[Rfam]
RNA sequence: CAAGGACCCGGUGCAAUCCCGGGUGGCUCUUCCGGCCGCUCAUCCGCCGGAUCAUC
Numbered sequence: 001c002a003a004g005g006a007c008c009c010g011g012u013g014c015a016a017u018c019c020c021g022g023g024u025g026g027c028u029c030u031u032c033c034g035g036c037c038g039c040u041c042a043u044c045c046g047c048c049g050g051a052u053c054a055u056c
Stems, first nucleotide, its partner, number of pairs: 006024006031051006